A member of the RNA family "MIR4371 microRNA precursor family" from Glycine max, 158 nucleotides long.
Gene Ontology terms of the family: miRNA-mediated post-transcriptional gene silencing and RISC complex.
Rfam 15.1 lists 321 matches to the family in 4 species.
Pairs were carried over by alignment from the consensus structure, which was predicted with RNAalifold.
A search with the family's covariance model found it, with a score of 118 bits.
RNA sequence: CCGUUAAGUAAUGAAGUGACAAACAUGGUGUCACGUCAUUACGCUCAAUCGUUGACAUAUCAUUAUCACAUCAUUGAAGGUGAUGACAUGAUAAUGAGAUGUCUAUGACAAGACGUGAUGACGUGACAUUCUGUCUAUCACGUUAUCAUUUAACAAAA
Numbered sequence: 001c002c003g004u005u006a007a008g009u010a011a012u013g014a015a016g017u018g019a020c021a022a023a024c025a026u027g028g029u030g031u032c033a034c035g036u037c038a039u040u041a042c043g044c045u046c047a048a049u050c051g052u053u054g055a056c057a058u059a060u061c062a063u064u065a066u067c068a069c070a071u072c073a074u075u076g077a078a079g080g081u082g083a084u085g086a087c088a089u090g091a092u093a094a095u096g097a098g099a100u101g102u103c104u105a106u107g108a109c110a111a112g113a114c115g116u117g118a119u120g121a122c123g124u125g126a127c128a129u130u131c132u133g134u135c136u137a138u139c140a141c142g143u144u145a146u147c148a149u150u151u152a153a154c155a156a157a158a
Stems, first nucleotide, its partner, number of pairs: 003154007011146004016141004021136001023134003027130017045112001049108004054103005071086004